[Rfam]
RNA: FMN riboswitch aptamer (RFN element)
Organism: Acetobacter sp. DmW_043
RNA sequence: UGACGUUCUCGGGGUGAGGUGAAAAUCCCAACCGGCGGUAAGUGGUUCGUCCACAAGCCCGCGAGCGCCUGCCUCUGGCAGGGUCAGCAGAUACCGGUGCAAUUCCGGAGCCGACGGUUAAAGUCCGGAUGAGAGAGAACGAGG
Numbered sequence: 001u002g003a004c005g006u007u008c009u010c011g012g013g014g015u016g017a018g019g020u021g022a023a024a025a026u027c028c029c030a031a032c033c034g035g036c037g038g039u040a041a042g043u044g045g046u047u048c049g050u051c052c053a054c055a056a057g058c059c060c061g062c063g064a065g066c067g068c069c070u071g072c073c074u075c076u077g078g079c080a081g082g083g084u085c086a087g088c089a090g091a092u093a094c095c096g097g098u099g100c101a102a103u104u105c106c107g108g109a110g111c112c113g114a115c116g117g118u119u120a121a122a123g124u125c126c127g128g129a130u131g132a133g134a135g136a137g138a139a140c141g142a143g144g
Stems, first nucleotide, its partner, number of pairs: 004141007018028002031124002033113002035062004057111002065088002092109001094108004115127003